[Rfam]
RNA: tRNA
Nucleotides: 084
Stems, first nucleotide, its partner, number of pairs: 001083007010026003028044005060076005
Number, partner (000 for none) and nucleotide at each position: 001083g002082c003081a004080c005079a006078c007077g008000u009000g010026g011025c012024g013000g014000a015000a016000u017000u018000g019000g020000u021000a022000g023000a024012c025011g026010c027000g028044c029043u030042g031041c032040c033000u034000u035000g036000a037000g038000g039000g040032g041031g042030c043029a044028g045000u046000g047000u048000c049000c050000u051000u052000a053000u054000g055000g056000a057000u058000g059000u060076g061075g062074a063073g064072g065000u066000u067000c068000g069000a070000a071000u072064c073063c074062u075061c076060u077007c078006g079005u080004g081003u082002g083001c084000a